[Rfam]
RNA sequence: AAAUAAAAUAGCAUGUGCCUUCAUAUAAGCCCGAUAAUACGGUUCGGGUGUUUCUACUAAGUUACCUUAAACAACUUAUCUAUGAUGGCAGAUAAACUGAAC
Numbered sequence: 001a002a003a004u005a006a007a008a009u010a011g012c013a014u015g016u017g018c019c020u021u022c023a024u025a026u027a028a029g030c031c032c033g034a035u036a037a038u039a040c041g042g043u044u045c046g047g048g049u050g051u052u053u054c055u056a057c058u059a060a061g062u063u064a065c066c067u068u069a070a071a072c073a074a075c076u077u078a079u080c081u082a083u084g085a086u087g088g089c090a091g092a093u094a095a096a097c098u099g100a101a102c
Stems, first nucleotide, its partner, number of pairs: 018088002021085005029049006058078006
RNA: Purine riboswitch aptamer